[Rfam]
RNA sequence: UCUACACCCAUGUGUGUAGGACCCCAAAAGAUCACCAUUAAAUUUGGUACAGAUCUUUAGAAAAGUUAUCACAUGGGUGUGAGAUUAAUUUUUCUAAAUAUCUGUGCUAAAUUUUAAUGGUGAUCAUUUGGAGUCCUACACACAUGGGUGUAGG
Numbered sequence: 001u002c003u004a005c006a007c008c009c010a011u012g013u014g015u016g017u018a019g020g021a022c023c024c025c026a027a028a029a030g031a032u033c034a035c036c037a038u039u040a041a042a043u044u045u046g047g048u049a050c051a052g053a054u055c056u057u058u059a060g061a062a063a064a065g066u067u068a069u070c071a072c073a074u075g076g077g078u079g080u081g082a083g084a085u086u087a088a089u090u091u092u093u094c095u096a097a098a099u100a101u102c103u104g105u106g107c108u109a110a111a112u113u114u115u116a117a118u119g120g121u122g123a124u125c126a127u128u129u130g131g132a133g134u135c136c137u138a139c140a141c142a143c144a145u146g147g148g149u150g151u152a153g154g
Stems, first nucleotide, its partner, number of pairs: 002153012015140008024131005030125003034121008042112013056098013069082005